The family of this 84-nucleotide sequence from Cynoglossus semilaevis is "Small nucleolar RNA SNORD35". Lineage of the source: Eukaryota > Bilateria > Teleostei > Percomorphaceae > Cynoglossus. On this family, see Nicoloso et al., J Mol Biol 1996: "Intron-encoded, antisense small nucleolar RNAs: the characterization of nine novel species points to their direct role as guides for the 2'-O-ribose methylation of rRNAs". The family is grouped with related families in Rfam's "SNORD35 clan". U35 is a C/D box snoRNA located in intron 6 of ribosomal protein L13A and intron 3 of ribosomal protein S11 in humans and at homologous positions in mouse and chicken ribosomal protein genes. U35 guides the methylation of 2'-O-ribose sites in 28S rRNA.
RNA sequence: UGCAAGUGAUGUUUUUCUCACGAUGGUCUUCCAAACCCUUUGGGUUCUGACGAUAUUGCCUAAUGGCAUUGCUGAUGCAAACCU
Numbered sequence: 001u002g003c004a005a006g007u008g009a010u011g012u013u014u015u016u017c018u019c020a021c022g023a024u025g026g027u028c029u030u031c032c033a034a035a036c037c038c039u040u041u042g043g044g045u046u047c048u049g050a051c052g053a054u055a056u057u058g059c060c061u062a063a064u065g066g067c068a069u070u071g072c073u074g075a076u077g078c079a080a081a082c083c084u
Stems, first nucleotide, its partner, number of pairs: 001079004